[Rfam]
RNA sequence: ACGAAUCUUUUUGCGGUCUGGGCUUGCUGUUCUUUACUGGUAAUCUGGGAAGCCCUUACCCCAAAAAGCAUUUG
Numbered sequence: 001a002c003g004a005a006u007c008u009u010u011u012u013g014c015g016g017u018c019u020g021g022g023c024u025u026g027c028u029g030u031u032c033u034u035u036a037c038u039g040g041u042a043a044u045c046u047g048g049g050a051a052g053c054c055c056u057u058a059c060c061c062c063a064a065a066a067a068g069c070a071u072u073u074g
Base pairs, nucleotide, nucleotide: 007068008067009066010065011064012063013062015060016059017058020055021054022053023052025050027048028047
Shown here is a 74-nucleotide RNA from Takifugu rubripes, a member of the family "mir-129 microRNA precursor family".
Its family is annotated with long-term synaptic potentiation, synapse and RISC complex in the Gene Ontology.
For this family Rfam cites "New microRNAs from mouse and human" (Lagos-Quintana et al., RNA, 2003).
The sequence is in the family's curated seed alignment.
Taxonomically the source falls in Takifugu (Eukaryota, Osteoglossocephalai, Neoteleostei, Eurypterygia).